[Rfam]
RNA sequence: UGUUUUCCCCCCAUUACUGGAACCCUUCCGCUUCACUUGCUAUAGGUGAAGUACCCCUGCCGAAACAUGGCAUAACAACAGGCAACCGCAACCGGUGGUUGCUAUAACGCAUGCGCACAGGGAGACACACCGCAAUGCACCC
Dot-bracket structure: ...........(.((...(((.....)))....(.(.(((.................(((((.....)))))........((((((((.......)))))))).....))).).)....)))....................
The record is a 142-nucleotide RNA from Enterobacter genomosp. S, which matches "opuB ncRNA motif" in Rfam. By type it is a cis-regulatory element. It is one of the family's seed sequences. opuB ncRNA motif was reported as a strong cis regulatory motif candidate, with potential to be a cis regulatory riboswitch type, it have been identified in mostly from species of Enterobacteriaceae. For this family Rfam cites "The discovery of novel noncoding RNAs in 50 bacterial genomes" (Narunsky et al., Nucleic Acids Res, 2024).